[Rfam]
RNA sequence: CUUCAUAAAGCAGAUUUCAUAUGUAUAUCCCGGAGAUAGGUCCGGAGUUUCUACCAACUGCCGUAAAUAGUUGACUACAUAGUACAUGUAGCUGUGA
Numbered sequence: 001c002u003u004c005a006u007a008a009a010g011c012a013g014a015u016u017u018c019a020u021a022u023g024u025a026u027a028u029c030c031c032g033g034a035g036a037u038a039g040g041u042c043c044g045g046a047g048u049u050u051c052u053a054c055c056a057a058c059u060g061c062c063g064u065a066a067a068u069a070g071u072u073g074a075c076u077a078c079a080u081a082g083u084a085c086a087u088g089u090a091g092c093u094g095u096g097a
Base pairs, nucleotide, nucleotide: 020081021080022079023078024077025076030045031044032043033042034041055073056072057071058070059069060068
Notes
The family of this 97-nucleotide RNA from Clostridium sp. CAG:7 is "Purine riboswitch aptamer". Lineage of the source: Bacteria > Clostridia > Eubacteriales > Clostridiaceae > Clostridium. The base pairs follow the family's consensus structure, which is taken from published work. From the family's description: Riboswitches are metabolite binding domains within certain messenger RNAs that serve as precision sensors for their corresponding targets. Allosteric rearrangement of mRNA structure is mediated by ligand binding, and this results in modulation of gene expression. A class of riboswitches that selectively recognises guanine and becomes saturated at concentrations as low as 5 nM. In Bacillus subtilis, this mRNA motif is located on at least five separate transcriptional units that together encode 17 genes that are mostly involved in purine transport and purine nucleotide biosynthesis. It has also been shown that some members of this family are specific for adenine instead. Hence this family are termed purine riboswitches.